Source information: The record is a 52-nucleotide RNA from Propithecus coquereli, which matches "mir-1302 microRNA precursor family" in Rfam. The match comes from Rfam's covariance-model search (66 bits). Rfam links the family to the GO terms miRNA-mediated post-transcriptional gene silencing and RISC complex. A reference for the family is Morin et al. (2008), "Application of massively parallel sequencing to microRNA profiling and discovery in human embryonic stem cells", Genome Res. The base pairs follow the family's consensus structure, which was predicted with WAR.

[Rfam]
RNA sequence: UUUAGAGUGUAAGUCUGUCCCAUGCAAUAUUUGGGACAGACUUAUACUUAAA
Numbered sequence: 001u002u003u004a005g006a007g008u009g010u011a012a013g014u015c016u017g018u019c020c021c022a023u024g025c026a027a028u029a030u031u032u033g034g035g036a037c038a039g040a041c042u043u044a045u046a047c048u049u050a051a052a
Base pairs, nucleotide, nucleotide: 006048007047008046009045010044011043012042014040015039016038018036019035020034021033022031